Small nucleolar RNA SNORD124: a 107-nucleotide RNA sequence from Pelusios castaneus. Its family is annotated with nucleolus and RNA processing in the Gene Ontology. The family's consensus secondary structure was predicted with WAR. A reference for the family is Yang et al. (2006), "snoSeeker: an advanced computational package for screening of guide and orphan snoRNA genes in the human genome", Nucleic Acids Res.
RNA sequence: AGUGCCUGUGGAAGGGAUGAUGUCUAGCACAGGACCCAGGAUAAGGAUUCUGACUAUAUCUGCAUGUGAUUAAACAUGUGAAGUGCUCUGACCUUCCAUUGGAGGGA
Numbered sequence: 001a002g003u004g005c006c007u008g009u010g011g012a013a014g015g016g017a018u019g020a021u022g023u024c025u026a027g028c029a030c031a032g033g034a035c036c037c038a039g040g041a042u043a044a045g046g047a048u049u050c051u052g053a054c055u056a057u058a059u060c061u062g063c064a065u066g067u068g069a070u071u072a073a074a075c076a077u078g079u080g081a082a083g084u085g086c087u088c089u090g091a092c093c094u095u096c097c098a099u100u101g102g103a104g105g106g107a
Stems, first nucleotide, its partner, number of pairs: 009098007